This 125-nucleotide RNA from Sediminivirga luteola belongs to the Rfam family "FMN riboswitch aptamer (RFN element)". A search with the family's covariance model found it, with a score of 97 bits. The family's consensus secondary structure is taken from published work.
RNA sequence: CACAUGUUCCGGGGACGGUGAGAUUCCGUGCCGGCGGUAUAGUCCGCGACCCGUCUGCAGCGCAGGCGGUGGACUCGGUGAGAUUCCGAGACCGACAGUGAAAGCCUGGAUGGGAGGAACAUGGC
Numbered sequence: 001c002a003c004a005u006g007u008u009c010c011g012g013g014g015a016c017g018g019u020g021a022g023a024u025u026c027c028g029u030g031c032c033g034g035c036g037g038u039a040u041a042g043u044c045c046g047c048g049a050c051c052c053g054u055c056u057g058c059a060g061c062g063c064a065g066g067c068g069g070u071g072g073a074c075u076c077g078g079u080g081a082g083a084u085u086c087c088g089a090g091a092c093c094g095a096c097a098g099u100g101a102a103a104g105c106c107u108g109g110a111u112g113g114g115a116g117g118a119a120c121a122u123g124g125c
Stems, first nucleotide, its partner, number of pairs: 003123008016028003030105002032094002034047004042092002051069002074090005096108003